[Rfam]
RNA sequence: CAUUUUUAACUGAAAUAACACACACAUAUCGUAAAGGUUAAAUCGGGGUGCCAAACGGUCGAUUUGCUUGAUAUGUGGAGGCUCAAC
Numbered sequence: 001c002a003u004u005u006u007u008a009a010c011u012g013a014a015a016u017a018a019c020a021c022a023c024a025c026a027u028a029u030c031g032u033a034a035a036g037g038u039u040a041a042a043u044c045g046g047g048g049u050g051c052c053a054a055a056c057g058g059u060c061g062a063u064u065u066g067c068u069u070g071a072u073a074u075g076u077g078g079a080g081g082c083u084c085a086a087c
Base pairs, nucleotide, nucleotide: 023077024076025075026074027073028072029071030070037068039066040065041064042063043062044061045060050059051058052057
A member of the RNA family "t44 RNA" from [Actinobacillus] rossii, 87 nucleotides long. This family consists of a number of bacterial RNA genes of between 135 and 170 bases in length. The t44 gene has been identified in several species of enteric bacteria but homologs have also been identified in Pseudomonas and Coxiella species. The t44 gene is found between the map and rpsB genes in all species in the full alignment apart from Shigella flexneri. The family's consensus secondary structure was predicted with LocARNA. The organism belongs to [Pasteurella] aerogenes-[Pasteurella] mairii-[Actinobacillus] rossii complex, within Bacteria. Rfam classes the family as a small RNA.